[Rfam]
RNA sequence: GUGUUGUUAUCUUUGGUUAUCUAGCUGUAUGAGUGUGCUGGCCGUCAUAAAGCUAGAUAACCGAAAGUAAGAGCCG
Number, nucleotide and partner (000 for none) at each position: 001g000002u000003g074004u073005u072006g000007u070008u069009a068010u067011c000012u065013u064014u063015g062016g061017u060018u059019a058020u057021c056022u055023a054024g053025c052026u051027g000028u049029a048030u047031g046032a045033g000034u000035g000036u000037g000038c000039u000040g000041g000042c000043c000044g000045u032046c031047a030048u029049a028050a000051a026052g025053c024054u023055a022056g021057a020058u019059a018060a017061c016062c015063g014064a013065a012066a000067g010068u009069a008070a007071g000072a005073g004074c003075c000076g000